RNA sequence: UGCCCCUGUCAAUUGGCUAAAAGACACCUUGUUGGUGGUGCUGUUCUUAUUAUCAGUCAGGAGCAAAGCAGAUGAUAGCCUUUUCGUCAUCUCAACUUGAUGCUUGGCUUGGUAGCUAAAACUCUUUUAUGCCUAGGACACAUAA
Numbered sequence: 001u002g003c004c005c006c007u008g009u010c011a012a013u014u015g016g017c018u019a020a021a022a023g024a025c026a027c028c029u030u031g032u033u034g035g036u037g038g039u040g041c042u043g044u045u046c047u048u049a050u051u052a053u054c055a056g057u058c059a060g061g062a063g064c065a066a067a068g069c070a071g072a073u074g075a076u077a078g079c080c081u082u083u084u085c086g087u088c089a090u091c092u093c094a095a096c097u098u099g100a101u102g103c104u105u106g107g108c109u110u111g112g113u114a115g116c117u118a119a120a121a122c123u124c125u126u127u128u129a130u131g132c133c134u135a136g137g138a139c140a141c142a143u144a145a
Stems, first nucleotide, its partner, number of pairs: 001065003005061004013056004020047001023042001025040004084140001087137002099133001101131001105129003111124002
About this RNA
This 145-nucleotide sequence from Mus spicilegus belongs to the Rfam family "Small nucleolar RNA SNORA48". The organism belongs to Mus, within Eukaryota. From the family's description: The snoRNA ACA 48 has been identified to guide pseudouridylation of the residue U3797 in the 28S rRNA subunit. The base pairs follow the family's consensus structure, which was predicted with RNAalifold.